Overview:
A member of the RNA family "Small nucleolar RNA R44/J54/Z268 family" from Centaurea solstitialis, 99 nucleotides long. NCBI's taxonomy places the organism under Eukaryota, Spermatophyta, Magnoliopsida, Asterales, Centaurea. Pairs were carried over by alignment from the consensus structure, which was predicted with PFOLD.

[Rfam]
RNA sequence: AUUGCAAGUGAUGAUAAAAAGACAGGGACAUCAGAACUUCAAAUCUUUUUUUGGAGUAGUGAUAGACCAAGUCUAUAAUGGGAAUCUCUCUGAUGCAAU
Number, nucleotide and partner (000 for none) at each position: 001a000002u098003u097004g096005c095006a094007a000008g000009u000010g000011a000012u000013g000014a000015u000016a000017a000018a000019a000020a000021g000022a000023c000024a000025g000026g000027g000028a000029c000030a000031u000032c000033a000034g000035a000036a000037c000038u000039u000040c000041a000042a000043a000044u000045c000046u000047u000048u000049u000050u000051u000052u000053g000054g000055a000056g000057u000058a000059g000060u000061g000062a000063u000064a000065g000066a000067c000068c000069a000070a000071g000072u000073c000074u000075a000076u000077a000078a000079u000080g000081g000082g000083a000084a000085u000086c000087u000088c000089u000090c000091u000092g000093a000094u006095g005096c004097a003098a002099u000